[Rfam]
RNA: Betaproteobacteria toxic small RNA
Organism: Pigmentiphaga humi
RNA sequence: UGUCUCCUCCACCCUCCUCCUUUGGUGGAUUAGCCCGAAGCCUACAGGCUUCGGGCUUUUUUU
Numbered sequence: 001u002g003u004c005u006c007c008u009c010c011a012c013c014c015u016c017c018u019c020c021u022u023u024g025g026u027g028g029a030u031u032a033g034c035c036c037g038a039a040g041c042c043u044a045c046a047g048g049c050u051u052c053g054g055g056c057u058u059u060u061u062u063u
Base pairs, nucleotide, nucleotide: 008029009028010027011026012025013024033056034055035054036053037052038051039050040049